[Rfam]
The record is a 98-nucleotide RNA from Sparus aurata, which matches "Vault RNA" in Rfam.
Rfam's curators write: This family of RNAs are found as part of the enigmatic vault ribonucleoprotein complex. The complex consists of a major vault protein (MVP), two minor vault proteins (VPARP and TEP1), and several small untranslated RNA molecules. It has been suggested that the vault complex is involved in drug resistance.

RNA sequence: GUGGAGGUUUAGCUCAGUGGUUACUUCCUAACUAGCGUUUCUCUAACCUCGCGGGUUCGCGCCCUGAGGAUCUACCACGGGUGCUGUCCUCUGCUUUU
Numbered sequence: 001g002u003g004g005a006g007g008u009u010u011a012g013c014u015c016a017g018u019g020g021u022u023a024c025u026u027c028c029u030a031a032c033u034a035g036c037g038u039u040u041c042u043c044u045a046a047c048c049u050c051g052c053g054g055g056u057u058c059g060c061g062c063c064c065u066g067a068g069g070a071u072c073u074a075c076c077a078c079g080g081g082u083g084c085u086g087u088c089c090u091c092u093g094c095u096u097u098u
Stems, first nucleotide, its partner, number of pairs: 002093006012082004017078004026070004

The base pairs follow the family's consensus structure, which is taken from published work. Taxonomically the source falls in Sparus (Eukaryota, Teleostomi, Actinopteri, Acanthomorphata).